A member of the RNA family "THF (Tetrahydrofolate) riboswitch aptamer" from bacterium D16-54, 106 nucleotides long. The match comes from Rfam's covariance-model search (87 bits). Rfam describes the family as follows. Tetrahydrofolate (THF) riboswitch was first reported for Ames et al. as an RNA motif in 5' untranslated (5'-UTR)regions of folate transport and biosynthesis genes in Firmicutes genomes.
RNA sequence: AGCAGAGUAGGUCUGUGUGCGUCAAGUGCCGGAUGGACGGGGAGUUGCCGUUCGGACGAAAAGGGAGGAAGCUGCCCUUGCGGUACACGGUCCGCAUCCCGCUGCA
Numbered sequence: 001a002g003c004a005g006a007g008u009a010g011g012u013c014u015g016u017g018u019g020c021g022u023c024a025a026g027u028g029c030c031g032g033a034u035g036g037a038c039g040g041g042g043a044g045u046u047g048c049c050g051u052u053c054g055g056a057c058g059a060a061a062a063g064g065g066a067g068g069a070a071g072c073u074g075c076c077c078u079u080g081c082g083g084u085a086c087a088c089g090g091u092c093c094g095c096a097u098c099c100c101g102c103u104g105c106a
Stems, first nucleotide, its partner, number of pairs: 002105004010093002013090007020082003026057002029055008040099003044095001061079004